[Rfam]
RNA sequence: GCCCCUCAGCCUUACUCCAGGGGCUUUUGCUGUAAAGUGCCUGGCAUUGCCUGGGGGUACAUGAAAGCGCACACGUCCCUCCCCAGGGAGACUCUGUUUUCUUGUGGGGCCUACGCGUUGAGCCAACAGU
Number, nucleotide and partner (000 for none) at each position: 001g000002c000003c057004c056005c055006u054007c053008a052009g051010c000011c049012u000013u000014a000015c000016u000017c044018c043019a042020g041021g000022g040023g038024c037025u036026u035027u034028u000029g000030c000031u000032g000033u000034a027035a026036a025037g024038u023039g000040c022041c020042u019043g018044g017045c000046a000047u000048u000049g011050c000051c009052u008053g007054g006055g005056g004057g003058u000059a000060c000061a000062u000063g000064a000065a000066a000067g000068c000069g123070c122071a000072c120073a119074c000075g000076u000077c000078c000079c000080u000081c109082c108083c107084c106085a105086g000087g000088g103089a102090g101091a100092c000093u000094c000095u000096g000097u000098u000099u000100u091101c090102u089103u088104g000105u085106g084107g083108g082109g081110c000111c000112u000113a000114c000115g000116c000117g000118u000119u073120g072121a000122g070123c069124c000125a000126a000127c000128a000129g000130u000
Background:
Shown here is a 130-nucleotide sequence from Sus scrofa, a member of the family "Small nucleolar RNA SNORA49". The match comes from Rfam's covariance-model search (120 bits). Its family is annotated with nucleolus and RNA processing in the Gene Ontology. The snoRNA ACA49 has no identified RNA target. NB genomic sequence 1-nt different from published.